[Rfam]
RNA sequence: AGAGUCCGCUGGGCAGUCGCCGCCUUGUCUCUUAUGAGAUUAAGGGGGAGGAAAGUCCGGGCUCCAUAGGGCAGAGUGCCAGGUAACCCCUGGGGGGCGUGAGCCUACGGAAAGUGCAGCAGAGAGUAGACCGCCUAAGCAGGUCUUUCGAGAUUUGCCGGUAAGGGUGAAAGGGUGUGGUAAGAGCGCACCGCGUGGGUGGUAACAUUCCACGGCAUGGUAAACCCCACUUGGAGCAAGACCAAAUAGGAAUCCUUUUCGUGGCCCACGUUGGAUUCGGGUAGGUUGCUUGAGGUCUGUGGUGACGCAGACCCUAGAUGAAUGACUGUCCACGACAGAACCCGGCUUACAGGCGGACUCGAUUA
Numbered sequence: 001a002g003a004g005u006c007c008g009c010u011g012g013g014c015a016g017u018c019g020c021c022g023c024c025u026u027g028u029c030u031c032u033u034a035u036g037a038g039a040u041u042a043a044g045g046g047g048g049a050g051g052a053a054a055g056u057c058c059g060g061g062c063u064c065c066a067u068a069g070g071g072c073a074g075a076g077u078g079c080c081a082g083g084u085a086a087c088c089c090c091u092g093g094g095g096g097g098c099g100u101g102a103g104c105c106u107a108c109g110g111a112a113a114g115u116g117c118a119g120c121a122g123a124g125a126g127u128a129g130a131c132c133g134c135c136u137a138a139g140c141a142g143g144u145c146u147u148u149c150g151a152g153a154u155u156u157g158c159c160g161g162u163a164a165g166g167g168u169g170a171a172a173g174g175g176u177g178u179g180g181u182a183a184g185a186g187c188g189c190a191c192c193g194c195g196u197g198g199g200u201g202g203u204a205a206c207a208u209u210c211c212a213c214g215g216c217a218u219g220g221u222a223a224a225c226c227c228c229a230c231u232u233g234g235a236g237c238a239a240g241a242c243c244a245a246a247u248a249g250g251a252a253u254c255c256u257u258u259u260c261g262u263g264g265c266c267c268a269c270g271u272u273g274g275a276u277u278c279g280g281g282u283a284g285g286u287u288g289c290u291u292g293a294g295g296u297c298u299g300u301g302g303u304g305a306c307g308c309a310g311a312c313c314c315u316a317g318a319u320g321a322a323u324g325a326c327u328g329u330c331c332a333c334g335a336c337a338g339a340a341c342c343c344g345g346c347u348u349a350c351a352g353g354c355g356g357a358c359u360c361g362a363u364u365a
Base pairs, nucleotide, nucleotide: 002360003359004358005357006356007355008354009353010352011350012330013329014328015327016326017325018324020048021047023045024044025043026042027041053348054347055346057345058344059343060342061341062236063235064234065233069267070266071265072264074232075231076230077229078228079093080092081091082090083089094108095106096105097104098103109227110226114225115224116221117220131166132165133162134161135160139156141154174192175191176190177189178188179187193216194214195213196212197211198210199208200207201206240287241286242285243284250278251277252276253275254274255273260270261269262268294313295312296311297310298309299308300307301306
RNA: Bacterial RNase P class A
Organism: Motiliproteus sp. MSK22-1